[Rfam]
RNA sequence: UGAGCGGACCGGGCCCCUCUGACGAUCGUCACGAUCGUGAUGUCGGACCGCGCCG
Numbered sequence: 001u002g003a004g005c006g007g008a009c010c011g012g013g014c015c016c017c018u019c020u021g022a023c024g025a026u027c028g029u030c031a032c033g034a035u036c037g038u039g040a041u042g043u044c045g046g047a048c049c050g051c052g053c054c055g
Stems, first nucleotide, its partner, number of pairs: 006049002009046004022038006
RNA: terC RNA
Organism: Phenylobacterium glaciei